[Rfam]
RNA sequence: GUCAUACUACGUGGCAUUGCGGUGGAAAGUAAACGAUGACCCCCAGUGAACUCUGGGGUAAAAUGCGUAUCAAAUUGCAAAAUAGAUCCUGGCCUGGGGCAUGCUCCGGGUCAGGCUUCUUU
Numbered sequence: 001g002u003c004a005u006a007c008u009a010c011g012u013g014g015c016a017u018u019g020c021g022g023u024g025g026a027a028a029g030u031a032a033a034c035g036a037u038g039a040c041c042c043c044c045a046g047u048g049a050a051c052u053c054u055g056g057g058g059u060a061a062a063a064u065g066c067g068u069a070u071c072a073a074a075u076u077g078c079a080a081a082a083u084a085g086a087u088c089c090u091g092g093c094c095u096g097g098g099g100c101a102u103g104c105u106c107c108g109g110g111u112c113a114g115g116c117u118u119c120u121u122u
Stems, first nucleotide, its partner, number of pairs: 001040005010035002014030002041048001057071004088115011

The family of this 122-nucleotide RNA sequence from Erwinia sorbitola is "Enterobacteria greA leader". Gene Ontology term of the family: regulation of gene expression. The source organism's lineage runs through Bacteria, Pseudomonadota, Gammaproteobacteria, Erwiniaceae and Erwinia. On this family, see Naville and Gautheret, Genome Biol 2010: "Premature terminator analysis sheds light on a hidden world of bacterial transcriptional attenuation". It is annotated as a cis-regulatory leader.